Annotation: The record is an 84-nucleotide RNA from Rhododendron simsii, which matches "Small nucleolar RNA SNORD34" in Rfam. By type it is a C/D-box small nucleolar RNA. The organism belongs to Rhododendron, within Eukaryota. snoRNA U34 is found in intron 5 of the ribosomal protein L13a gene in humans. For this family Rfam cites "Purified box C/D snoRNPs are able to reproduce site-specific 2'-O-methylation of target RNA in vitro" (Galardi et al., Mol Cell Biol, 2002).

[Rfam]
RNA sequence: AUGGCCUAUGAUGUUCAAGUUUUUGCCUACAUUGUCUGAUUCUAUUAUCAAUGAAGAGGACUCUAAAGCUAUUCUGAGGCCCGU
Numbered sequence: 001a002u003g004g005c006c007u008a009u010g011a012u013g014u015u016c017a018a019g020u021u022u023u024u025g026c027c028u029a030c031a032u033u034g035u036c037u038g039a040u041u042c043u044a045u046u047a048u049c050a051a052u053g054a055a056g057a058g059g060a061c062u063c064u065a066a067a068g069c070u071a072u073u074c075u076g077a078g079g080c081c082c083g084u
Base pairs, nucleotide, nucleotide: 001084002083003081004080005079006078